TPP riboswitch aptamer (THI element): a 90-nucleotide RNA from Nicoliella spurrieriana. Its family is annotated with thiamine pyrophosphate binding in the Gene Ontology. It scores 66 bits against the family's covariance model. Lineage of the source: Bacteria > Bacillati > Bacilli > Lactobacillales > Nicoliella.
[Rfam]
RNA sequence: UAGAGAUGUUUGGGGUGCUAUUCGGCUGAGAUAAUACCCAUUGAACCUGAUCCAGUUAGUACUGGUGGAGGAAAACGUUUUCAUUGAUCA
Number, nucleotide and partner (000 for none) at each position: 001u000002a000003g000004a000005g000006a078007u077008g076009u075010u074011u040012g039013g038014g037015g000016u034017g026018c025019u024020a000021u000022u000023c000024g019025g018026c017027u000028g000029a000030g000031a000032u000033a000034a016035u000036a000037c014038c013039c012040a011041u000042u000043g000044a000045a000046c071047c070048u069049g000050a000051u000052c065053c064054a063055g062056u000057u000058a000059g000060u000061a000062c055063u054064g053065g052066u000067g000068g000069a048070g047071g046072a000073a000074a010075a009076c008077g007078u006079u000080u000081u000082c000083a000084u000085u000086g000087a000088u000089c000090a000
Vitamin B(1) in its active form thiamin pyrophosphate (TPP) is an essential coenzyme that is synthesised by coupling of pyrimidine and thiazole moieties in bacteria.